[Rfam]
RNA sequence: AUACUCCGCUGGGGGAGCUUUUAGUGAAAAGCUGAGAAAGAAAUGUGAUUUCUUGACCCUUUGAACCUGAUCCAGAUCAUACUGGCGUAGGGAAGCGGCGUGGACCCGUC
Number, nucleotide and partner (000 for none) at each position: 001a000002u000003a000004c000005u000006c098007c097008g096009c095010u094011g060012g059013g058014g057015g000016a054017g032018c031019u030020u029021u028022u000023a000024g000025u000026g000027a000028a021029a020030a019031g018032c017033u000034g000035a000036g000037a000038a000039a053040g052041a051042a050043a049044u000045g000046u000047g000048a000049u043050u042051u041052c040053u039054u016055g000056a000057c014058c013059c012060u011061u000062u000063g000064a000065a000066c091067c090068u089069g088070a000071u000072c085073c084074a083075g082076a000077u000078c000079a000080u000081a000082c075083u074084g073085g072086c000087g000088u069089a068090g067091g066092g000093a000094a010095g009096c008097g007098g006099c000100g000101u000102g000103g000104a000105c000106c000107c000108g000109u000110c000
Rfam assigns this 110-nucleotide RNA from Fictibacillus aquaticus to the family "TPP riboswitch aptamer (THI element)".
The base pairs follow the family's consensus structure, which is taken from published work.